The record is a 137-nucleotide RNA from Photobacterium gaetbulicola, which matches "Histidine operon leader" in Rfam. Rfam classes the family as a cis-regulatory leader. The organism belongs to Photobacterium gaetbulicola, within Bacteria. Its family is annotated with histidine biosynthetic process in the Gene Ontology. Rfam's curators write: At least 6 amino acid operons are known to be regulated by attenuation. In each a leader sequence of 150-200 bp is found upstream of the first gene in the operon. This leader sequence can assume two different secondary structures known as the terminator and the anti-terminator structure. In each case the leader also codes for very short peptide sequence that is rich in the end product amino acid of the operon. The literature on the family includes a 1982 paper in Annu Rev Genet by Kolter and Yanofsky, "Attenuation in amino acid biosynthetic operons".
RNA sequence: ACAUCACCAUCAUCAUCCUGAUUAGUCUUUCGGGAGGAUACGCCUCGCUCUGGAAGACGCAAUAAUACUCUUCCAGCGGUCGUGAUAGCACAGAUUACAAGACCCUCGGAAGAGACAUCUUCCGAGGGUUUUUUCGU
Numbered sequence: 001a002c003a004u005c006a007c008c009a010u011c012a013u014c015a016u017c018c019u020g021a022u023u024a025g026u027c028u029u030u031c032g033g034g035a036g037g038a039u040a041c042g043c044c045u046c047g048c049u050c051u052g053g054a055a056g057a058c059g060c061a062a063u064a065a066u067a068c069u070c071u072u073c074c075a076g077c078g079g080u081c082g083u084g085a086u087a088g089c090a091c092a093g094a095u096u097a098c099a100a101g102a103c104c105c106u107c108g109g110a111a112g113a114g115a116c117a118u119c120u121u122c123c124g125a126g127g128g129u130u131u132u133u134u135c136g137u
Base pairs, nucleotide, nucleotide: 010047012039013038014037017034018033019032020031021030050076051075052074053073054072055071056070057069097134099132100131101130102129103128104127105126106125107124108123109122110121111120112119